RNA sequence: AAGACAAACUGAAGCAGUGAUCCAACCAGAGUGAUGCGGGCGCCUAGUGCUGGUUGGGGAGUUGGUGGCGCGACCGGCAGUCAUUUGA
Numbered sequence: 001a002a003g004a005c006a007a008a009c010u011g012a013a014g015c016a017g018u019g020a021u022c023c024a025a026c027c028a029g030a031g032u033g034a035u036g037c038g039g040g041c042g043c044c045u046a047g048u049g050c051u052g053g054u055u056g057g058g059g060a061g062u063u064g065g066u067g068g069c070g071c072g073a074c075c076g077g078c079a080g081u082c083a084u085u086u087g088a
Base pairs, nucleotide, nucleotide: 003086004085008081009080010079011078013063014062015061022057023056024055025054026053027052028051029050038075039074040071041070042069043068044067

Shown here is an 88-nucleotide RNA from Deinococcus cellulosilyticus, a member of the family "c-di-GMP-II-GAG riboswitch aptamer". For this family Rfam cites "Bioinformatic analysis of riboswitch structures uncovers variant classes with altered ligand specificity" (Weinberg et al., Proc Natl Acad Sci U S A, 2017). Its family is annotated with regulation of gene expression and cyclic-di-GMP binding in the Gene Ontology.